[Rfam]
RNA sequence: UUAACACGGUUGCUAUGCGUAUAACUACAAUACAAGAAAUUCCUCUUUGACUGGCCAAUAGCGAUAUUGGCCACUUUUUU
Numbered sequence: 001u002u003a004a005c006a007c008g009g010u011u012g013c014u015a016u017g018c019g020u021a022u023a024a025c026u027a028c029a030a031u032a033c034a035a036g037a038a039a040u041u042c043c044u045c046u047u048u049g050a051c052u053g054g055c056c057a058a059u060a061g062c063g064a065u066a067u068u069g070g071c072c073a074c075u076u077u078u079u080u
Stems, first nucleotide, its partner, number of pairs: 002015001026032002052073009

This 80-nucleotide RNA from Chloropsis hardwickii belongs to the Rfam family "sroB RNA". For this family Rfam cites "RNomics in Escherichia coli detects new sRNA species and indicates parallel transcriptional output in bacteria" (Vogel et al., Nucleic Acids Res, 2003).